[Rfam]
RNA sequence: CCCCCAUGAGGAGACCCCCACGUGUCUGACCCCCCCGCUGGGCCCAGGACCUGCAAAGGUGGAACCCCCUGGAGCCCUCGGGGAGAAGAGGACGGAAAGUCCCAGCGGGGACGGUCUGAGGGGG
Numbered sequence: 001c002c003c004c005c006a007u008g009a010g011g012a013g014a015c016c017c018c019c020a021c022g023u024g025u026c027u028g029a030c031c032c033c034c035c036c037g038c039u040g041g042g043c044c045c046a047g048g049a050c051c052u053g054c055a056a057a058g059g060u061g062g063a064a065c066c067c068c069c070u071g072g073a074g075c076c077c078u079c080g081g082g083g084a085g086a087a088g089a090g091g092a093c094g095g096a097a098a099g100u101c102c103c104a105g106c107g108g109g110g111a112c113g114g115u116c117u118g119a120g121g122g123g124g
Base pairs, nucleotide, nucleotide: 001123002122003121004120

Small nucleolar RNA SNORD22: a 124-nucleotide RNA from Vidua chalybeata. Rfam 15.1 lists 1,081 matches to the family in 414 species. For this family Rfam cites "Requirement for intron-encoded U22 small nucleolar RNA in 18S ribosomal RNA maturation" (Tycowski et al., Science, 1994). It scores 74 bits against the family's covariance model.